[Rfam]
This 58-nucleotide RNA sequence from Lactobacillus acidophilus belongs to the Rfam family "Transposase-1 RNA".
The family's consensus secondary structure is taken from published work.
By type it is a small RNA.
NCBI's taxonomy places the organism under Bacteria, Bacillati, Lactobacillales, Lactobacillus, Lactobacillus acidophilus.

RNA sequence: CUGUAAGAGCUGGUCAAUGUGAUUACUCCUAUUUGGAAUAUCAGAAUACUAGUGAAGA
Dot-bracket structure: ........((((((.....((((...(((.....)))..))))....)))))).....